[Rfam]
RNA sequence: CGACGGCCGUUCCUCUUCCUGUCUACAGUGGAGCAGGAGGAUUUCAUGCUGUCGCAGAGAAUUGUGGGUCUUUUCACCCAGAGAGCUGCAGGUGGAGCUCACCAACACAGCUUUCUGGUUUUGUGGGAUCCAACAUGU
Numbered sequence: 001c002g003a004c005g006g007c008c009g010u011u012c013c014u015c016u017u018c019c020u021g022u023c024u025a026c027a028g029u030g031g032a033g034c035a036g037g038a039g040g041a042u043u044u045c046a047u048g049c050u051g052u053c054g055c056a057g058a059g060a061a062u063u064g065u066g067g068g069u070c071u072u073u074u075c076a077c078c079c080a081g082a083g084a085g086c087u088g089c090a091g092g093u094g095g096a097g098c099u100c101a102c103c104a105a106c107a108c109a110g111c112u113u114u115c116u117g118g119u120u121u122u123g124u125g126g127g128a129u130c131c132a133a134c135a136u137g138u
Stems, first nucleotide, its partner, number of pairs: 001054007014041005020035003067130006078118010091103005

Rfam assigns this 138-nucleotide RNA sequence from Oryzias javanicus to the family "Small nucleolar RNA SNORA79". The organism belongs to Oryzias, within Eukaryota. A reference for the family is Schattner et al. (2006), "A computational screen for mammalian pseudouridylation guide H/ACA RNAs", RNA. Rfam's curators write: ACA65 (SNORA79) is a member of the H/ACA class of snoRNAs that guide the sites of modification of uridines to pseudouridines. This snoRNA was identified by computational screening and its expression in mouse experimentally verified by Northern blot and primer extension analysis.